A member of the RNA family "Saccharopolyspora sRNA 350" from Actinomadura chibensis, 527 nucleotides long.
RNA sequence: UUGACCGUGUACUCCCAGCGCUCGGGCUCGGCGCCCUCGGCCGUCCCGACGAGGGCCUGCUCGCCGAAGAAGUCGCCGUUGGCGAGCGUCGCGUGGACGGCGUCGGCCCCGUACUCGCCCGCGCCGAUCUGGCUGAGCUUGCCGUGCGCGACGAGGACGACCCGGUCGACCGGGGUGCCGCGCUCGACGACGACGUCGCCCGGCUCGUACUCCUGCUGCGUGAAGCGGCCCGCGAUGGCGUCCAGGGUGAGGUCGUCGUCGUAGCCGCGCAGCGGGGGUAGCUCGCCGAGCUCGCGCGGGAUGACGCGGACGUCGGCGCCGGUGGUCACGAAGCUGACCCGGCCGUCGCCGAGCGUAUAGGUGAGGCGACGGUUGACCCGGUAGGCGCCGCCCGCCGCCUGCACCCAGGGCAGCAGUUUCAGCAGCCACCGGGAGGUGAUGCCCUGCAUCUGGGGGACGGACUUGGUCGUGGUCGCCAGGUUUCGUGCCGCUGCGGUACCCAGGCUCAACUGCUGUUGGUCCUGCUG
Numbered sequence: 001u002u003g004a005c006c007g008u009g010u011a012c013u014c015c016c017a018g019c020g021c022u023c024g025g026g027c028u029c030g031g032c033g034c035c036c037u038c039g040g041c042c043g044u045c046c047c048g049a050c051g052a053g054g055g056c057c058u059g060c061u062c063g064c065c066g067a068a069g070a071a072g073u074c075g076c077c078g079u080u081g082g083c084g085a086g087c088g089u090c091g092c093g094u095g096g097a098c099g100g101c102g103u104c105g106g107c108c109c110c111g112u113a114c115u116c117g118c119c120c121g122c123g124c125c126g127a128u129c130u131g132g133c134u135g136a137g138c139u140u141g142c143c144g145u146g147c148g149c150g151a152c153g154a155g156g157a158c159g160a161c162c163c164g165g166u167c168g169a170c171c172g173g174g175g176u177g178c179c180g181c182g183c184u185c186g187a188c189g190a191c192g193a194c195g196u197c198g199c200c201c202g203g204c205u206c207g208u209a210c211u212c213c214u215g216c217u218g219c220g221u222g223a224a225g226c227g228g229c230c231c232g233c234g235a236u237g238g239c240g241u242c243c244a245g246g247g248u249g250a251g252g253u254c255g256u257c258g259u260c261g262u263a264g265c266c267g268c269g270c271a272g273c274g275g276g277g278g279u280a281g282c283u284c285g286c287c288g289a290g291c292u293c294g295c296g297c298g299g300g301a302u303g304a305c306g307c308g309g310a311c312g313u314c315g316g317c318g319c320c321g322g323u324g325g326u327c328a329c330g331a332a333g334c335u336g337a338c339c340c341g342g343c344c345g346u347c348g349c350c351g352a353g354c355g356u357a358u359a360g361g362u363g364a365g366g367c368g369a370c371g372g373u374u375g376a377c378c379c380g381g382u383a384g385g386c387g388c389c390g391c392c393c394g395c396c397g398c399c400u401g402c403a404c405c406c407a408g409g410g411c412a413g414c415a416g417u418u419u420c421a422g423c424a425g426c427c428a429c430c431g432g433g434a435g436g437u438g439a440u441g442c443c444c445u446g447c448a449u450c451u452g453g454g455g456g457a458c459g460g461a462c463u464u465g466g467u468c469g470u471g472g473u474c475g476c477c478a479g480g481u482u483u484c485g486u487g488c489c490g491c492u493g494c495g496g497u498a499c500c501c502a503g504g505c506u507c508a509a510c511u512g513c514u515g516u517u518g519g520u521c522c523u524g525c526u527g
Stems, first nucleotide, its partner, number of pairs: 007404005014397001018343002024340002028337005035330001051327002055323003062318006072242001074240006080126004092117002095114001097112004134232002137229002142227001145224001146221005153214001155212001159210001165206001170203004175199002178192001181189002246311001248309001255305006266296004271292003275286001277284001345356002368392001370390003377385002406446007414438002418433003422430001452491001454489002457486005462480006501527003
A search with the family's covariance model found it, with a score of 169 bits. The organism belongs to Actinomadura, within Bacteria. Rfam links the family to the GO term regulation of secondary metabolite biosynthetic process.